[Rfam]
RNA: Small nucleolar RNA SNORD14
Organism: Tripterygium wilfordii
RNA sequence: AGUCCGUGAUGACAAUCCGAAGGCUUGUUUCUCAGAAAACAUUCGCAGUGGCCGCCUAAGAGCUUUCGCCUUCGCCGGGCUUGAGAGCUUAUGCUGCUUCUAUCCUUCCUUGGAUGUCUGAGGCU
Number, nucleotide and partner (000 for none) at each position: 001a125002g124003u123004c122005c000006g000007u000008g000009a000010u000011g000012a000013c000014a000015a000016u000017c000018c000019g000020a000021a000022g000023g000024c000025u000026u000027g000028u000029u000030u000031c000032u000033c000034a000035g000036a000037a000038a000039a000040c000041a000042u000043u000044c000045g000046c000047a000048g000049u000050g000051g000052c000053c000054g000055c000056c000057u000058a000059a000060g000061a000062g088063c087064u086065u085066u084067c083068g000069c000070c000071u000072u000073c000074g000075c000076c000077g000078g000079g000080c000081u000082u000083g067084a066085g065086a064087g063088c062089u000090u000091a000092u000093g000094c000095u000096g000097c000098u000099u000100c000101u000102a000103u000104c000105c000106u000107u000108c000109c000110u000111u000112g000113g000114a000115u000116g000117u000118c000119u000120g000121a000122g004123g003124c002125u001